Shown here is a 208-nucleotide RNA, a member of the family "Connexin-43 internal ribosome entry site (IRES)". This family represents the connexin-43 internal ribosome entry site (IRES) which allows cap independent translation during conditions such as heat shock and stress. For this family Rfam cites "Connexin43 mRNA contains a functional internal ribosome entry site" (Schiavi et al., FEBS Lett, 1999). The family's consensus secondary structure is taken from published work.

RNA sequence: AAAAAAGCUUUUACGAGGUAUCAGCACUUUUCUUUCAUUAGGGGGAAGGCGUGAGGAAAGUACCAAACAGCAGCGGAGUUUUAAACUUUAAAUAGACAGGUCUGAGUGCCUGAACUUGCCUUUUCAUUUUACUUCAUCCUCCAAGGAGUUCAAUCACUUGGCGUGACUUCACUACUUUUAAGCAAAAGAGUAAGUUUUUAAAAAAUGA
Numbered sequence: 001a002a003a004a005a006a007g008c009u010u011u012u013a014c015g016a017g018g019u020a021u022c023a024g025c026a027c028u029u030u031u032c033u034u035u036c037a038u039u040a041g042g043g044g045g046a047a048g049g050c051g052u053g054a055g056g057a058a059a060g061u062a063c064c065a066a067a068c069a070g071c072a073g074c075g076g077a078g079u080u081u082u083a084a085a086c087u088u089u090a091a092a093u094a095g096a097c098a099g100g101u102c103u104g105a106g107u108g109c110c111u112g113a114a115c116u117u118g119c120c121u122u123u124u125c126a127u128u129u130u131a132c133u134u135c136a137u138c139c140u141c142c143a144a145g146g147a148g149u150u151c152a153a154u155c156a157c158u159u160g161g162c163g164u165g166a167c168u169u170c171a172c173u174a175c176u177u178u179u180a181a182g183c184a185a186a187a188g189a190g191u192a193a194g195u196u197u198u199u200a201a202a203a204a205a206u207g208a
Stems, first nucleotide, its partner, number of pairs: 007025003012020003034148003038144002041141004045135004053128002056125001058124003075103003079099002104119001106117001108115001158200001160198002163196001167188003172182002